[Rfam]
RNA sequence: GCAGACCGAAAGCCGCGACUGCUCGUCCCGCACAGGAUCCAGAUGAAUCCACACCCACGAGCGGGCCAAGGUCUGAGUAUUCAAGUCGUUCAAGCUCGAUCCCAGCGGGAUCGCUCUGUAAUCGAGCAACGGGCACAAGAAACUCGCUAUUUGUACACCCUCUUGCAGGGAUGCUGGCUUGGAAUUCUCGUGGCGACGGCGCUGUCUAUCCUUUCCGCCCAACGCAGUCUCACGCUCUGCUUUCAGGUUGCCUGAGGGGCCCCAGCGCGGAGCAAACACUGCGCGCUGGGACAGACUAUUAGAACAGUUUGAGCAACGUUAACGAGACGAAUCGCAGAUCGAUGCCACGAGCAGCCGCUGCGAUGGCCGCCUGCCCUCGCGUAUCGCGGCGUGCAACGCUGGCCGACGGGAGGGAUCUCGCGUCCCUGCGUAUCCAACGCAGUAGCGGGACCUCACCAAUGGUUUCCCUGCUGUGUUUGCGCGACCUCGUCGGAGGCUUCAAGUUGGCCUCCCUGGGCACAUAGGCGGACGCGUUUUUGUGGAGCGGAACAUAGGAUGGGUGGUGCUUGAGUGCACUUCGUGGCUCGUGUUUCUUUGGAGACGCGAAACUCGAUUCAGACUAUUCUUCGUCUGC
Number, nucleotide and partner (000 for none) at each position: 001g634002c633003a632004g631005a000006c000007c000008g628009a627010a626011a000012g000013c000014c583015g000016c000017g000018a000019c000020u000021g062022c061023u060024c059025g058026u000027c000028c000029c000030g000031c000032a000033c000034a000035g050036g049037a048038u047039c000040c045041a000042g000043a000044u000045g040046a000047a038048u037049c036050c035051a000052c000053a000054c000055c000056c000057a000058c025059g024060a023061g022062c021063g000064g000065g000066c000067c000068a000069a000070g000071g000072u000073c618074u617075g616076a615077g614078u000079a000080u000081u000082c000083a000084a000085g000086u000087c000088g305089u304090u303091c302092a000093a000094g000095c000096u000097c000098g112099a111100u110101c109102c108103c000104a000105g000106c000107g000108g102109g101110a100111u099112c098113g127114c126115u125116c124117u000118g000119u000120a000121a000122u000123c000124g116125a115126g114127c113128a300129a299130c000131g297132g296133g000134c294135a000136c000137a000138a000139g000140a000141a000142a000143c000144u000145c285146g284147c283148u000149a000150u000151u000152u000153g000154u000155a000156c000157a000158c000159c000160c000161u000162c000163u000164u000165g000166c000167a000168g000169g000170g000171a000172u000173g000174c000175u000176g000177g000178c000179u000180u000181g000182g000183a000184a000185u000186u000187c000188u000189c000190g000191u000192g000193g000194c000195g000196a000197c000198g000199g000200c000201g000202c000203u000204g000205u000206c000207u000208a000209u000210c000211c000212u000213u000214u000215c000216c000217g000218c000219c000220c000221a000222a000223c000224g000225c000226a000227g000228u000229c000230u000231c000232a000233c000234g000235c000236u000237c000238u000239g000240c000241u000242u000243u000244c000245a000246g000247g000248u000249u000250g000251c000252c000253u000254g000255a000256g000257g000258g000259g000260c000261c000262c000263c000264a000265g000266c000267g000268c000269g000270g000271a000272g000273c000274a000275a000276a000277c000278a000279c000280u000281g000282c000283g147284c146285g145286c000287u000288g000289g000290g000291a000292c000293a000294g134295a000296c132297u131298a000299u129300u128301a000302g091303a090304a089305c088306a000307g000308u000309u000310u000311g000312a000313g000314c000315a000316a000317c000318g000319u000320u000321a000322a000323c000324g000325a000326g000327a000328c000329g000330a000331a000332u000333c000334g000335c000336a000337g000338a000339u000340c000341g000342a000343u000344g000345c000346c000347a000348c000349g000350a000351g000352c000353a000354g000355c000356c000357g000358c000359u000360g000361c000362g000363a000364u000365g000366g000367c000368c000369g000370c000371c000372u000373g000374c000375c000376c000377u000378c000379g000380c000381g000382u000383a000384u000385c000386g000387c000388g000389g000390c000391g000392u000393g000394c000395a000396a000397c000398g000399c000400u000401g000402g000403c000404c000405g000406a000407c000408g000409g000410g000411a000412g000413g000414g000415a000416u000417c000418u000419c000420g000421c000422g000423u000424c000425c000426c000427u000428g000429c000430g000431u000432a000433u000434c000435c000436a000437a000438c000439g000440c000441a000442g000443u000444a000445g000446c000447g000448g000449g000450a000451c000452c000453u000454c000455a000456c000457c000458a000459a000460u000461g000462g000463u000464u000465u000466c000467c000468c000469u000470g000471c000472u000473g000474u000475g000476u000477u000478u000479g000480c000481g000482c000483g000484a000485c000486c000487u000488c000489g000490u000491c000492g000493g000494a000495g000496g000497c000498u000499u000500c000501a000502a000503g000504u000505u000506g000507g000508c000509c000510u000511c000512c000513c000514u000515g000516g000517g000518c000519a000520c000521a000522u000523a000524g000525g000526c000527g000528g000529a000530c000531g000532c000533g000534u000535u000536u000537u000538u000539g000540u000541g000542g000543a000544g000545c000546g000547g000548a000549a000550c000551a000552u000553a000554g000555g000556a000557u000558g000559g000560g000561u000562g000563g000564u000565g000566c000567u000568u000569g000570a000571g000572u000573g000574c000575a000576c000577u000578u000579c000580g000581u000582g000583g014584c000585u606586c605587g604588u603589g602590u601591u600592u000593c000594u000595u000596u000597g000598g000599a000600g591601a590602c589603g588604c587605g586606a585607a000608a000609c000610u000611c000612g000613a000614u077615u076616c075617a074618g073619a000620c000621u000622a000623u000624u000625c000626u010627u009628c008629g000630u000631c004632u003633g002634c001
RNA: Nuclear RNase P
Organism: Mycena chlorophos